[Rfam]
RNA sequence: UACUCCCCGGCGGGAGAAGCGGGCCAGGCCCGCUGCCGAAGGCGCAACGCCCGUAAUCGCUCAGGCCCACGUACCGCCGGCCGAGA
Numbered sequence: 001u002a003c004u005c006c007c008c009g010g011c012g013g014g015a016g017a018a019g020c021g022g023g024c025c026a027g028g029c030c031c032g033c034u035g036c037c038g039a040a041g042g043c044g045c046a047a048c049g050c051c052c053g054u055a056a057u058c059g060c061u062c063a064g065g066c067c068c069a070c071g072u073a074c075c076g077c078c079g080g081c082c083g084a085g086a
Stems, first nucleotide, its partner, number of pairs: 007080007019033004035066003038062002042060003048053001
Dot-bracket structure: ......(((((((.....((((.......)))).(((((..(((...(....)....))))).))).......)))))))......
This 86-nucleotide RNA sequence from Arenimonas fontis belongs to the Rfam family "Glycine riboswitch aptamer". The match comes from Rfam's covariance-model search (53 bits). From the family's description: This family represents the bacterial glycine riboswitch. Rfam links the family to the GO term glycine biosynthetic process. NCBI's taxonomy places the organism under Bacteria, Pseudomonadati, Pseudomonadota, Gammaproteobacteria, Arenimonas.